[Rfam]
RNA sequence: GCAUGGCUGAAUACUGUGUACUUUAGUCAGUAUUUUACACAGCCAGACACCAUGCAAAAGUAAAGUCUUCCUUUUAUAAUAACUGUGGUAUGCUAAGGUUUUUCAUAGUGUGCCCCUAUUAAAAGUGAAUACAGAC
Numbered sequence: 001g002c003a004u005g006g007c008u009g010a011a012u013a014c015u016g017u018g019u020a021c022u023u024u025a026g027u028c029a030g031u032a033u034u035u036u037a038c039a040c041a042g043c044c045a046g047a048c049a050c051c052a053u054g055c056a057a058a059a060g061u062a063a064a065g066u067c068u069u070c071c072u073u074u075u076a077u078a079a080u081a082a083c084u085g086u087g088g089u090a091u092g093c094u095a096a097g098g099u100u101u102u103u104c105a106u107a108g109u110g111u112g113c114c115c116c117u118a119u120u121a122a123a124a125g126u127g128a129a130u131a132c133a134g135a136c
Stems, first nucleotide, its partner, number of pairs: 001055006014042006068129003071125006085116001087114009
RNA: Small nucleolar RNA SNORA15